[Rfam]
RNA sequence: UGCAGAUCCAUGAAGGCCUGUGCUGAAGACAGCUGCUGUUGGCACAGGCUGGACGCCUCUCCUGCA
Numbered sequence: 001u002g003c004a005g006a007u008c009c010a011u012g013a014a015g016g017c018c019u020g021u022g023c024u025g026a027a028g029a030c031a032g033c034u035g036c037u038g039u040u041g042g043c044a045c046a047g048g049c050u051g052g053a054c055g056c057c058u059c060u061c062c063u064g065c066a
Base pairs, nucleotide, nucleotide: 001066002065003064004063005062015050016049017048018047019046020045021044022043023042024041030038031037032036
Dot-bracket structure: (((((.........((((((((((.....(((...)))..))))))))))...........)))))

The record is a 66-nucleotide RNA from Neodrepanis coruscans, which matches "Selenocysteine insertion sequence 1" in Rfam. For this family Rfam cites "A novel RNA structural motif in the selenocysteine insertion element of eukaryotic selenoprotein mRNAs" (Walczak et al., RNA, 1996). It scores 36 bits against the family's covariance model. Rfam's curators write: The incorporation of selenocysteine into a protein sequence is directed by an in-frame UGA codon (usually a stop codon) within the coding region of the mRNA. Selenoprotein mRNAs contain a conserved secondary structure in the 3' UTR that is required for the distinction of UGA stop from UGA selenocysteine. The selenocysteine insertion sequence (SECIS) is around 60 nt in length and adopts a hairpin structure which is sufficiently well-defined and conserved to act as a computational screen for selenoprotein genes. By type it is a cis-regulatory element. Lineage of the source: Eukaryota > Opisthokonta > Deuterostomia > Dinosauria > Neodrepanis.